[Rfam]
RNA sequence: GCAAUCGCGGGCGAUGGAGUUCGCCUGAAAUGCCCGCAACGGGCUGAUGACUCCUACGAGACC
Dot-bracket structure: .........[[[[..((((((]]]]......((((.....))))....)))))).........
Notes
A member of the RNA family "Fluoride riboswitch aptamer (crcB RNA motif)" from Metallibacterium scheffleri, 63 nucleotides long. The source organism's lineage runs through Bacteria, Pseudomonadati, Pseudomonadota, Gammaproteobacteria and Metallibacterium. The family's consensus secondary structure is taken from published work.